Shown here is a 113-nucleotide sequence from Edaphobacter modestus, a member of the family "SAM riboswitch aptamer (S box leader)".

RNA sequence: AUUUCAUGAAGAGUGGUUGAGGGACGAGCCCUGUGACGCCACGACAACCGGCCUGAAACCAUUAUUUCAGGCGACCGGUGUCAACUCUCUCCUGGAAACGGGGAACAUGAGAU
Dot-bracket structure: ((((((((....(((((...(((..[[[)))......)))))((((.((.(((((((........)))))))....))))))...(]]].((((....))))..)))))))))